The record is a 319-nucleotide RNA from a Flavobacteriaceae bacterium, which matches "Bacterial RNase P class A" in Rfam. The source organism's lineage runs through Bacteria, Pseudomonadati, Bacteroidota, Flavobacteriales and Flavobacteriaceae. Rfam describes the family as follows. Ribonuclease P (RNase P) is a ubiquitous endoribonuclease, found in archaea, bacteria and eukarya as well as chloroplasts and mitochondria. The match comes from Rfam's covariance-model search (193 bits).
RNA sequence: CAAGUAAAUUGCCUUAUCGCUUUAUGUUAAAUCAAUUUUUGACUUAAAGAGGAAAGUCCGAACACCAUAGUGUAGCAUAGCGGUUAAUGACCGUCAAUCGUGAGAUUAGGAAAAGUGCAACAGAAAGAAUGUACAGAUAAUGCUGUAGUGAAAUCAGGUAAACUCUAUGUGGUGCAAUGUUAUGUAUACCAACGUUUAAGUGUAACACGUGCGAUGUUGGAGGGUAAACAGCUAAAGUUUAUUGGUAACAAUAAACGUAGAUAAAUGAUAGGGAUUCGCUAAGCGAAUACAGAAUUCGGCUUAUAGAUUUACUUACUCU
Dot-bracket structure: .(((((((((((((((((.(((((.((((((......)))))).)))))....[[[.[[[[[((((...[[[[.((((((((((.....)))))(((((....)))).)((...((((..............((((......))))...........))..)))))))))))))...((((.......(((((......((((.]]]]))))...)))))......))))......((((((((....))))))))..........))))))).....................]]]]]]]].).))))))))).....